[Rfam]
RNA sequence: CGGAUUGAGAUGACCCUAUCCUCCUCCCAAGGGUUGUCUUGUGAACAAUGGCACUCCUCCUCCCAGCCGUUGUUCGAAAUUUCGGAAAGCCUGCCGCACCUCCUCCCGCGGCGGGCUUUUUCG
Numbered sequence: 001c002g003g004a005u006u007g008a009g010a011u012g013a014c015c016c017u018a019u020c021c022u023c024c025u026c027c028c029a030a031g032g033g034u035u036g037u038c039u040u041g042u043g044a045a046c047a048a049u050g051g052c053a054c055u056c057c058u059c060c061u062c063c064c065a066g067c068c069g070u071u072g073u074u075c076g077a078a079a080u081u082u083c084g085g086a087a088a089g090c091c092u093g094c095c096g097c098a099c100c101u102c103c104u105c106c107c108g109c110g111g112c113g114g115g116c117u118u119u120u121u122c123g
Stems, first nucleotide, its partner, number of pairs: 007040003011036007043075010087118011
RNA: Alphaproteobacterial ar14